[Rfam]
RNA sequence: UUCUUAUCAAGAGAGGCGGAGGGACUGGCCCUAUGAAACCCAACAACCGGCAUUUAUUUCAAUAUGUAUCGGUGUUAAUUCCUGCAGAGUUAAUUUAUACUCUGAAAGAUGAGAA
Numbered sequence: 001u002u003c004u005u006a007u008c009a010a011g012a013g014a015g016g017c018g019g020a021g022g023g024a025c026u027g028g029c030c031c032u033a034u035g036a037a038a039c040c041c042a043a044c045a046a047c048c049g050g051c052a053u054u055u056a057u058u059u060c061a062a063u064a065u066g067u068a069u070c071g072g073u074g075u076u077a078a079u080u081c082c083u084g085c086a087g088a089g090u091u092a093a094u095u096u097a098u099a100c101u102c103u104g105a106a107a108g109a110u111g112a113g114a115a
Stems, first nucleotide, its partner, number of pairs: 001115008013041001015040002021031003025084001027082002042076004047072002050067003080107001085104006
Shown here is a 115-nucleotide RNA from Clostridium kluyveri, a member of the family "SAM riboswitch aptamer (S box leader)".
Pairs were carried over by alignment from the consensus structure, which is taken from published work.
Rfam's curators put it in the seed alignment.
The organism belongs to Clostridium kluyveri, within Bacteria.
About the family: The SAM riboswitch is found upstream of a number of genes which code for proteins involved in methionine or cysteine biosynthesis in Gram-positive bacteria.